[Rfam]
RNA sequence: ACUAGUUUCAUAUUAUUCACUCAUAUAAUCACAGGAAUAUGGCCUGUAAGUUUCUACCGGACUACCGUAAAUAGUCUGACUAUGGGUGAGCAAUGGUCAUCA
Numbered sequence: 001a002c003u004a005g006u007u008u009c010a011u012a013u014u015a016u017u018c019a020c021u022c023a024u025a026u027a028a029u030c031a032c033a034g035g036a037a038u039a040u041g042g043c044c045u046g047u048a049a050g051u052u053u054c055u056a057c058c059g060g061a062c063u064a065c066c067g068u069a070a071a072u073a074g075u076c077u078g079a080c081u082a083u084g085g086g087u088g089a090g091c092a093a094u095g096g097u098c099a100u101c102a
Base pairs, nucleotide, nucleotide: 018088019087020086021085022084023083024082025081029049031047032046033045034044035043058078059077060076061075062074063073064072

Shown here is a 102-nucleotide RNA from Niallia endozanthoxylica, a member of the family "Purine riboswitch aptamer". The family's consensus secondary structure is taken from published work. NCBI's taxonomy places the organism under Bacteria, Bacillota, Bacilli, Bacillaceae, Niallia.